[Rfam]
RNA sequence: CAUCCAUCCCGAGCGACCGAGAGACCUGGCUCAGUGACGUCGCAGCAACCGCCCCGACGGGGAAGGUGCUAACGCCAGGACCGAUGGAGG
Numbered sequence: 001c002a003u004c005c006a007u008c009c010c011g012a013g014c015g016a017c018c019g020a021g022a023g024a025c026c027u028g029g030c031u032c033a034g035u036g037a038c039g040u041c042g043c044a045g046c047a048a049c050c051g052c053c054c055c056g057a058c059g060g061g062g063a064a065g066g067u068g069c070u071a072a073c074g075c076c077a078g079g080a081c082c083g084a085u086g087g088a089g090g
Base pairs, nucleotide, nucleotide: 001090003088004087005086006085007084008083013043014042015041016040017039021032022031023030026078027077028076029075044070045069046068047067049066050065052061053060054059074082
Dot-bracket structure: (.((((((....(((((...(((..[[[[)))......)))))((((.((.(((....)))...))))))...(]]]]...))))))).)
A member of the RNA family "SAM riboswitch aptamer (S box leader)" from Saccharomonospora glauca, 90 nucleotides long. The base pairs follow the family's consensus structure, which is taken from published work. Taxonomically the source falls in Saccharomonospora glauca (Bacteria, Actinomycetes, Pseudonocardiales, Pseudonocardiaceae). Rfam links the family to the GO term regulation of gene expression. It scores 64 bits against the family's covariance model.